A member of the RNA family "radC RNA" from Bordetella ansorpii, 147 nucleotides long. The organism belongs to Bordetella, within Bacteria. It scores 90 bits against the family's covariance model.

[Rfam]
RNA sequence: UCCUCGGCACCAUGUUCGUCGGCGCUGCCGAUACAUGCCCAGGCAGUCGAGACCUUCGAGGCUGCAAGCGCGGGAAACCGUGUUGGUCGAAUCUUCCUACGGACGCACCGCGUCUAUCCACCCACAAGGGAUCUCUCCCUUGUGGGC
Numbered sequence: 001u002c003c004u005c006g007g008c009a010c011c012a013u014g015u016u017c018g019u020c021g022g023c024g025c026u027g028c029c030g031a032u033a034c035a036u037g038c039c040c041a042g043g044c045a046g047u048c049g050a051g052a053c054c055u056u057c058g059a060g061g062c063u064g065c066a067a068g069c070g071c072g073g074g075a076a077a078c079c080g081u082g083u084u085g086g087u088c089g090a091a092u093c094u095u096c097c098u099a100c101g102g103a104c105g106c107a108c109c110g111c112g113u114c115u116a117u118c119c120a121c122c123c124a125c126a127a128g129g130g131a132u133c134u135c136u137c138c139c140u141u142g143u144g145g146g147c
Base pairs, nucleotide, nucleotide: 011037012036013035014034015033018032019031020030021029022028023027043065044064045063046062047061048060051088052087053086054085067084068083069082070081071080072079073078118146119145124143125142126141127140128139129138130137131136